[Rfam]
RNA sequence: ACUGAUAAAGGCAAACCUGUCGAAAGGCAGGGACGCAAAGCUAUGGGCCUUCCCGCAUCAGCGGUUGGCUGCCAGGCUGCCGGGC
Number, nucleotide and partner (000 for none) at each position: 001a000002c000003u082004g081005a000006u000007a000008a000009a000010g000011g036012c035013a000014a000015a000016c031017c030018u029019g028020u027021c026022g000023a000024a000025a000026g021027g020028c019029a018030g017031g016032g000033a000034c071035g012036c011037a000038a000039a078040g077041c076042u075043a000044u074045g073046g072047g069048c068049c067050u000051u000052c000053c000054c000055g000056c000057a000058u000059c000060a000061g000062c000063g000064g000065u000066u000067g049068g048069c047070u000071g034072c046073c045074a044075g042076g041077c040078u039079g000080c000081c004082g003083g000084g000085c000

c-di-GMP-I-GGC riboswitch aptamer: an 85-nucleotide sequence from Bacillus infantis. The source organism's lineage runs through Bacteria, Bacillati, Bacillota, Caryophanales and Bacillus infantis. The base pairs follow the family's consensus structure, which is taken from published work. It scores 73 bits against the family's covariance model.